[Rfam]
RNA: mir-166 microRNA precursor family
RNA sequence: GCUGUGAGGAAUGCCGCAUGGACCGAAGCUAUGUGCUCCAUCUUAACGUGGUGGUAUUGAUACUACGUUUCGGACCAGGCUUCAUUCCCCUCAGC
Numbered sequence: 001g002c003u004g005u006g007a008g009g010a011a012u013g014c015c016g017c018a019u020g021g022a023c024c025g026a027a028g029c030u031a032u033g034u035g036c037u038c039c040a041u042c043u044u045a046a047c048g049u050g051g052u053g054g055u056a057u058u059g060a061u062a063c064u065a066c067g068u069u070u071c072g073g074a075c076c077a078g079g080c081u082u083c084a085u086u087c088c089c090c091u092c093a094g095c
Stems, first nucleotide, its partner, number of pairs: 001095004006090001008088006016080002019077003024072003